[Rfam]
RNA sequence: GCCGUACCCUGUUAGGUGAGGCUCCUGUAUGGACAAAUGCUACUGCUCAGAAACAUCGAGAGAUGCCAACGAGUCAACUGGAACUGCUGAUGAAGGCUUUUCCUAAUGCAGCUGAAAGAUCAAUUUCUACGUCAUACAGUGCUAAAGCUCAACGUCGGGACAUCUC
Numbered sequence: 001g002c003c004g005u006a007c008c009c010u011g012u013u014a015g016g017u018g019a020g021g022c023u024c025c026u027g028u029a030u031g032g033a034c035a036a037a038u039g040c041u042a043c044u045g046c047u048c049a050g051a052a053a054c055a056u057c058g059a060g061a062g063a064u065g066c067c068a069a070c071g072a073g074u075c076a077a078c079u080g081g082a083a084c085u086g087c088u089g090a091u092g093a094a095g096g097c098u099u100u101u102c103c104u105a106a107u108g109c110a111g112c113u114g115a116a117a118g119a120u121c122a123a124u125u126u127c128u129a130c131g132u133c134a135u136a137c138a139g140u141g142c143u144a145a146a147g148c149u150c151a152a153c154g155u156c157g158g159g160a161c162a163u164c165u166c
Stems, first nucleotide, its partner, number of pairs: 005162001008159003011153002013094001015149003020143003025139008039112003043108001045074004054065004080103004086097003114127003
RNA: M-box riboswitch aptamer (ykoK leader)